A member of the RNA family "SAM riboswitch aptamer (S box leader)" from Alteribacillus bidgolensis, 113 nucleotides long.
From the family's description: The SAM riboswitch is found upstream of a number of genes which code for proteins involved in methionine or cysteine biosynthesis in Gram-positive bacteria.
For this family Rfam cites "The S box regulon: a new global transcription termination control system for methionine and cysteine biosynthesis genes in gram-positive bacteria" (Grundy and Henkin, Mol Microbiol, 1998).
Its family is annotated with regulation of gene expression in the Gene Ontology.
RNA sequence: UUCUUAUCGAGAGAGAUGGAGGGAAAGGCCCUAUGAAAUCUCAGCAACCAGCCACGCAAUGGUCAGGUGCUAAAUCCGACAGACGAUAUACUUACUCGUCUGAAAGAUAAGAU
Numbered sequence: 001u002u003c004u005u006a007u008c009g010a011g012a013g014a015g016a017u018g019g020a021g022g023g024a025a026a027g028g029c030c031c032u033a034u035g036a037a038a039u040c041u042c043a044g045c046a047a048c049c050a051g052c053c054a055c056g057c058a059a060u061g062g063u064c065a066g067g068u069g070c071u072a073a074a075u076c077c078g079a080c081a082g083a084c085g086a087u088a089u090a091c092u093u094a095c096u097c098g099u100c101u102g103a104a105a106g107a108u109a110a111g112a113u
Stems, first nucleotide, its partner, number of pairs: 002112007013042005021031003027077002043071004048067002051063003075105001080102006